Rfam assigns this 89-nucleotide RNA from Asticcacaulis sp. AC466 to the family "Glycine riboswitch aptamer". Rfam links the family to the GO term glycine biosynthetic process. A search with the family's covariance model found it, with a score of 61 bits.

RNA sequence: AAAAGACUCGCGGGAGAGAGUGCAGACUCGCACCGCCGAAGGCGCAACCGCCCCGGAAACGCUCAGGCAAAAUGGACCGCUCGUCACAU
Numbered sequence: 001a002a003a004a005g006a007c008u009c010g011c012g013g014g015a016g017a018g019a020g021u022g023c024a025g026a027c028u029c030g031c032a033c034c035g036c037c038g039a040a041g042g043c044g045c046a047a048c049c050g051c052c053c054c055g056g057a058a059a060c061g062c063u064c065a066g067g068c069a070a071a072a073u074g075g076a077c078c079g080c081u082c083g084u085c086a087c088a089u
Base pairs, nucleotide, nucleotide: 006084007083010080011079012078013077020033021032022031023030035068036067037066038064039063042062043061044060048056049055